[Rfam]
RNA sequence: GACCGCAGACGCGACUGGCGGCACGGGGAUGGGUCAACCAUCGGGGAGCCUGUCACGGGAGUCGACCGCCUGGGCCCCGUGC
Numbered sequence: 001g002a003c004c005g006c007a008g009a010c011g012c013g014a015c016u017g018g019c020g021g022c023a024c025g026g027g028g029a030u031g032g033g034u035c036a037a038c039c040a041u042c043g044g045g046g047a048g049c050c051u052g053u054c055a056c057g058g059g060a061g062u063c064g065a066c067c068g069c070c071u072g073g074g075c076c077c078c079g080u081g082c
Base pairs, nucleotide, nucleotide: 005053006052007051011049012048015045016044017070018069019068020067021066029041030040031039032038059077061075062074063073
RNA: ZMP/ZTP riboswitch aptamer (pfl RNA motif)
Organism: Actinoplanes sp. TBRC 11911